RNA sequence: UACAUACAUGCAUACUUCCAUAUAUAUAUAUAUAUAUAUAUAUAUGUAUGGAAGUAUGCAUGUAUGUA
Numbered sequence: 001u002a003c004a005u006a007c008a009u010g011c012a013u014a015c016u017u018c019c020a021u022a023u024a025u026a027u028a029u030a031u032a033u034a035u036a037u038a039u040a041u042a043u044a045u046g047u048a049u050g051g052a053a054g055u056a057u058g059c060a061u062g063u064a065u066g067u068a
Base pairs, nucleotide, nucleotide: 007062008061009060010059011058012057013056014055015054016053017052018051019050020049021048022047023046024045025044028043029042030041

Shown here is a 68-nucleotide sequence from Octopus sinensis, a member of the family "mir-1 microRNA precursor family". Lineage of the source: Eukaryota > Lophotrochozoa > Cephalopoda > Octopoda > Octopus. About the family: This family represents the microRNA (miRNA) mir-1 family. miRNAs are transcribed as ~70nt precursors (modelled here) and subsequently processed by the Dicer enzyme to give a ~22nt product. In this case the mature sequence comes from the 3' arm of the precursor. The extents of the hairpin precursors are not generally known and are estimated based on hairpin prediction. The products are thought to have regulatory roles through complementarity to mRNA. The involvement of Dicer in miRNA processing suggests a relationship with the phenomenon of RNA interference. miRNAs are numbered based on the sequence of the mature RNA. This family also contains the mir-206 from human, which appears to be related to mir-1. The match comes from Rfam's covariance-model search (46 bits). Its family is annotated with RISC complex and miRNA-mediated post-transcriptional gene silencing in the Gene Ontology.